RNA sequence: UCCCCCACAGUCCUCCGGUCCUCGUUUCUCGUAAGGGAUCCUAUUGUAGGCACCCGCAUCAUUUGGUUACCCUCCCAUAUGUCGCUCUCGAGCCUGUAACAGGACCUCGUGAAUGCCGCAGCCGGAUUAUGGUGGAUAGCGCGUCCUGUAUAGGAUGUACCAAGCGGGCGGGUGAACGAGGCUCGGAACUUAACCCUAAGAAGAUAU
Numbered sequence: 001u002c003c004c005c006c007a008c009a010g011u012c013c014u015c016c017g018g019u020c021c022u023c024g025u026u027u028c029u030c031g032u033a034a035g036g037g038a039u040c041c042u043a044u045u046g047u048a049g050g051c052a053c054c055c056g057c058a059u060c061a062u063u064u065g066g067u068u069a070c071c072c073u074c075c076c077a078u079a080u081g082u083c084g085c086u087c088u089c090g091a092g093c094c095u096g097u098a099a100c101a102g103g104a105c106c107u108c109g110u111g112a113a114u115g116c117c118g119c120a121g122c123c124g125g126a127u128u129a130u131g132g133u134g135g136a137u138a139g140c141g142c143g144u145c146c147u148g149u150a151u152a153g154g155a156u157g158u159a160c161c162a163a164g165c166g167g168g169c170g171g172g173u174g175a176a177c178g179a180g181g182c183u184c185g186g187a188a189c190u191u192a193a194c195c196c197u198a199a200g201a202a203g204a205u206a207u
Base pairs, nucleotide, nucleotide: 009190010189011188015186016185017184018183